[Rfam]
RNA sequence: GGUUAACGGAGGAGGCAGACCAUGGGACUGACGCAAUCCAUCAACGUCCUUCUGAUCAGUGCAGCAUUUAUGUUCGUCGUGACGAUGCUAUUCAUCUGAGACGCCGUUCGCGGCGAUCCGCGACCGGAAAUGCAGGCUUCUCUUAGCUUAACAUACGGGUUUGAAUUGAGCGCCGGUCCUGAAAAGGCCGGCGCUUU
Numbered sequence: 001g002g003u004u005a006a007c008g009g010a011g012g013a014g015g016c017a018g019a020c021c022a023u024g025g026g027a028c029u030g031a032c033g034c035a036a037u038c039c040a041u042c043a044a045c046g047u048c049c050u051u052c053u054g055a056u057c058a059g060u061g062c063a064g065c066a067u068u069u070a071u072g073u074u075c076g077u078c079g080u081g082a083c084g085a086u087g088c089u090a091u092u093c094a095u096c097u098g099a100g101a102c103g104c105c106g107u108u109c110g111c112g113g114c115g116a117u118c119c120g121c122g123a124c125c126g127g128a129a130a131u132g133c134a135g136g137c138u139u140c141u142c143u144u145a146g147c148u149u150a151a152c153a154u155a156c157g158g159g160u161u162u163g164a165a166u167u168g169a170g171c172g173c174c175g176g177u178c179c180u181g182a183a184a185a186g187g188c189c190g191g192c193g194c195u196u197u
Base pairs, nucleotide, nucleotide: 014048015047016046025039026038027037168196169195170194171193172192173191174190175189176188177187178186
Dot-bracket structure: .............(((........(((.........)))......))).......................................................................................................................(((((((((((.......))))))))))).
Shown here is a 197-nucleotide RNA from Arminella tumorigenes, a member of the family "Rhizobiales sRNA Atu_C9". It scores 98 bits against the family's covariance model. By type it is a small RNA. The family's consensus secondary structure was predicted with WAR.